The record is a 130-nucleotide RNA from Crotophaga sulcirostris, which matches "Small nucleolar RNA SNORA69" in Rfam.
RNA sequence: AAAGCAGGCUGCAAUUACAGUGCUUCAUCCUGUGGGAGUACUGCCAUUUUCCUGCUGAGAGUAACUCUGUUAACGCUGUCUUUGGUUUCCCCUACAUGGUGGUGAAACUUUAUUCUUAACAUGUACAGGU
Numbered sequence: 001a002a003a004g005c006a007g008g009c010u011g012c013a014a015u016u017a018c019a020g021u022g023c024u025u026c027a028u029c030c031u032g033u034g035g036g037a038g039u040a041c042u043g044c045c046a047u048u049u050u051c052c053u054g055c056u057g058a059g060a061g062u063a064a065c066u067c068u069g070u071u072a073a074c075g076c077u078g079u080c081u082u083u084g085g086u087u088u089c090c091c092c093u094a095c096a097u098g099g100u101g102g103u104g105a106a107a108c109u110u111u112a113u114u115c116u117u118a119a120c121a122u123g124u125a126c127a128g129g130u
Base pairs, nucleotide, nucleotide: 003056004055005054006053007052008051018043019042020041021040022039023038024037025036026035066123068121069120070119071118072117073116084109085108086107087106088105089104091102092101
Lineage of the source: Eukaryota > Bilateria > Craniata > Amniota > Crotophaga. U69 is a member of the H/ACA class of small nucleolar RNAs (snoRNAs) which act as guides in the the modification of uridines to pseudouridines.